The family of this 101-nucleotide sequence from Alkalilimnicola ehrlichii is "t44 RNA". A reference for the family is Tjaden et al. (2002), "Transcriptome analysis of Escherichia coli using high-density oligonucleotide probe arrays", Nucleic Acids Res. About the family: This family consists of a number of bacterial RNA genes of between 135 and 170 bases in length. The t44 gene has been identified in several species of enteric bacteria but homologs have also been identified in Pseudomonas and Coxiella species. It is annotated as a small RNA.
[Rfam]
RNA sequence: UUGUCGGCGCGGCAAAUCCACACAUACACCGGCACUCGCGGCCGGGUGCCCCAGCGGCUUGCCGCCGGGGGUCGUCGCGAGAGGGUGUAUGGAGGCGUAAC
Numbered sequence: 001u002u003g004u005c006g007g008c009g010c011g012g013c014a015a016a017u018c019c020a021c022a023c024a025u026a027c028a029c030c031g032g033c034a035c036u037c038g039c040g041g042c043c044g045g046g047u048g049c050c051c052c053a054g055c056g057g058c059u060u061g062c063c064g065c066c067g068g069g070g071g072u073c074g075u076c077g078c079g080a081g082a083g084g085g086u087g088u089a090u091g092g093a094g095g096c097g098u099a100a101c
Stems, first nucleotide, its partner, number of pairs: 023091008035081008048072005